[Rfam]
Shown here is a 75-nucleotide RNA sequence from Nyctereutes procyonoides, a member of the family "mir-8799 microRNA precursor family". The family's consensus secondary structure was predicted with RNAalifold. Rfam links the family to the GO terms miRNA-mediated post-transcriptional gene silencing and RISC complex. NCBI's taxonomy places the organism under Eukaryota, Eumetazoa, Euteleostomi, Theria, Nyctereutes.

RNA sequence: GGGGGGAGGCCGGAUCCUGGGCUGUGCCCCGGUGGCCUGCGCUGUUGGAUUCGCGCUCCCGGCCUGCAGCCCCCU
Numbered sequence: 001g002g003g004g005g006g007a008g009g010c011c012g013g014a015u016c017c018u019g020g021g022c023u024g025u026g027c028c029c030c031g032g033u034g035g036c037c038u039g040c041g042c043u044g045u046u047g048g049a050u051u052c053g054c055g056c057u058c059c060c061g062g063c064c065u066g067c068a069g070c071c072c073c074c075u
Stems, first nucleotide, its partner, number of pairs: 001075006009067002012064002016062002019059003023055004028048002030044005